[Rfam]
Description: Shown here is a 210-nucleotide RNA, a member of the family "c-di-AMP riboswitch aptamer (ydaO/yuaA leader)".
RNA sequence: ACCGGACUUCCGACAGAGCAUUCCAGGGACGAGGACGGGGGACCCAAAGUCCUCUGUGAGAACAGAAAAGUUCUCCAGUGGACACCGGUUCGAUCGCAAGACCGAAUCUUGGGGUGAAGCCAGACCCUUUCCAGCCAGGAAAGGCGAGGCCGGGCGACCUCUCAGCCCGAACCCGACAGCUGACCUCGCAGGCGCGUGUGGAGAGGAUUU
Numbered sequence: 001a002c003c004g005g006a007c008u009u010c011c012g013a014c015a016g017a018g019c020a021u022u023c024c025a026g027g028g029a030c031g032a033g034g035a036c037g038g039g040g041g042a043c044c045c046a047a048a049g050u051c052c053u054c055u056g057u058g059a060g061a062a063c064a065g066a067a068a069a070g071u072u073c074u075c076c077a078g079u080g081g082a083c084a085c086c087g088g089u090u091c092g093a094u095c096g097c098a099a100g101a102c103c104g105a106a107u108c109u110u111g112g113g114g115u116g117a118a119g120c121c122a123g124a125c126c127c128u129u130u131c132c133a134g135c136c137a138g139g140a141a142a143g144g145c146g147a148g149g150c151c152g153g154g155c156g157a158c159c160u161c162u163c164a165g166c167c168c169g170a171a172c173c174c175g176a177c178a179g180c181u182g183a184c185c186u187c188g189c190a191g192g193c194g195c196g197u198g199u200g201g202a203g204a205g206g207a208u209u210u
Stems, first nucleotide, its partner, number of pairs: 002192002007034003036188005045111002112174003120149002152168004